[Rfam]
RNA sequence: UUUGGACAGGCUGUCAGGACGAUCUAUUGUCCGUUCUGGCUAAUGAAAAAGCAAAAAC
Numbered sequence: 001u002u003u004g005g006a007c008a009g010g011c012u013g014u015c016a017g018g019a020c021g022a023u024c025u026a027u028u029g030u031c032c033g034u035u036c037u038g039g040c041u042a043a044u045g046a047a048a049a050a051g052c053a054a055a056a057a058c
Stems, first nucleotide, its partner, number of pairs: 009044001013040009
Rfam assigns this 58-nucleotide RNA sequence from Lacticaseibacillus casei to the family "Lacto-rpoB RNA". The family's RNA type in Rfam is cis-regulatory element.